Overview: Rfam assigns this 110-nucleotide RNA sequence from Paenibacillus agri to the family "Guanidine-I riboswitch aptamer". Its family is annotated with regulation of gene expression in the Gene Ontology. About the family: This family represents a conserved RNA structure found upstream of the ykkC and yxkD genes in Bacillus subtilis and related genes in other bacteria.
RNA sequence: ACAAAUGUUUUCUAGGGUUCCGAACUGCUCUGACGGUUGACUGGUCCGAGAGAAAACGCAUGGAUGCCACUUAGCAACCGUGUACACGGCGGGAAAAAAGCCCGGGAGAA
Numbered sequence: 001a002c003a004a005a006u007g008u009u010u011u012c013u014a015g016g017g018u019u020c021c022g023a024a025c026u027g028c029u030c031u032g033a034c035g036g037u038u039g040a041c042u043g044g045u046c047c048g049a050g051a052g053a054a055a056a057c058g059c060a061u062g063g064a065u066g067c068c069a070c071u072u073a074g075c076a077a078c079c080g081u082g083u084a085c086a087c088g089g090c091g092g093g094a095a096a097a098a099a100g101c102c103c104g105g106g107a108g109a110a
Stems, first nucleotide, its partner, number of pairs: 007057006015047002020044002022041001023038005058083006065076003085105001087108001091103003